[Rfam]
RNA sequence: CUCUUUGUGCUUGGGGCAAUGAUGCAGCUAGUGAGGUAAUAACCAAGGCGCGUUUAUUGCUGGCUGGUUGAAAACUAUUUCCAAACCCCCUCUCUGGCCUUGGUUCACCCUUGGCCUUUGAGAAUUUCUGGAAGGACUCCCUUCUGGGUAAAGUC
Numbered sequence: 001c002u003c004u005u006u007g008u009g010c011u012u013g014g015g016g017c018a019a020u021g022a023u024g025c026a027g028c029u030a031g032u033g034a035g036g037u038a039a040u041a042a043c044c045a046a047g048g049c050g051c052g053u054u055u056a057u058u059g060c061u062g063g064c065u066g067g068u069u070g071a072a073a074a075c076u077a078u079u080u081c082c083a084a085a086c087c088c089c090c091u092c093u094c095u096g097g098c099c100u101u102g103g104u105u106c107a108c109c110c111u112u113g114g115c116c117u118u119u120g121a122g123a124a125u126u127u128c129u130g131g132a133a134g135g136a137c138u139c140c141c142u143u144c145u146g147g148g149u150a151a152a153g154u155c
Base pairs, nucleotide, nucleotide: 021054022053023052024051025050027049028048029047035044036043037042090122091121092120096116097115098114099113102109103108135155136154137153138152
RNA: U4 spliceosomal RNA
Organism: Hibiscus syriacus